[Rfam]
RNA sequence: UUUUGAGGUUUGCGGACUAAAACCGCCACGUCCUGUGGCAGAUGUCUUUUGCGCGAAAGCGAAGCGACAGCAGCAACAUCCGCAUGACAAACAUCGUGUUUG
Numbered sequence: 001u002u003u004u005g006a007g008g009u010u011u012g013c014g015g016a017c018u019a020a021a022a023c024c025g026c027c028a029c030g031u032c033c034u035g036u037g038g039c040a041g042a043u044g045u046c047u048u049u050u051g052c053g054c055g056a057a058a059g060c061g062a063a064g065c066g067a068c069a070g071c072a073g074c075a076a077c078a079u080c081c082g083c084a085u086g087a088c089a090a091a092c093a094u095c096g097u098g099u100u101u102g
Stems, first nucleotide, its partner, number of pairs: 011084006025074002029070001088102005
This 102-nucleotide RNA sequence from Ureibacillus yapensis belongs to the Rfam family "Bacillaceae-1 RNA".
NCBI's taxonomy places the organism under Bacteria, Bacillati, Bacillota, Bacilli, Ureibacillus.
The base pairs follow the family's consensus structure, which is taken from published work.
A search with the family's covariance model found it, with a score of 42 bits.